[Rfam]
The record is a 73-nucleotide RNA sequence from Fusobacterium necrogenes, which matches "Fluoride riboswitch aptamer (crcB RNA motif)" in Rfam. The organism belongs to Fusobacterium, within Bacteria. The match comes from Rfam's covariance-model search (49 bits).

RNA sequence: UAAAUUAAUGGGAAUGAAGUUCUCCCUUGGUAUAAACCUAAACUGCUUAUUAGCUGAUGACUUCUACUUUAGG
Numbered sequence: 001u002a003a004a005u006u007a008a009u010g011g012g013a014a015u016g017a018a019g020u021u022c023u024c025c026c027u028u029g030g031u032a033u034a035a036a037c038c039u040a041a042a043c044u045g046c047u048u049a050u051u052a053g054c055u056g057a058u059g060a061c062u063u064c065u066a067c068u069u070u071a072g073g
Base pairs, nucleotide, nucleotide: 010026011025012024013023016064017063018062019061020060021059045054046053047052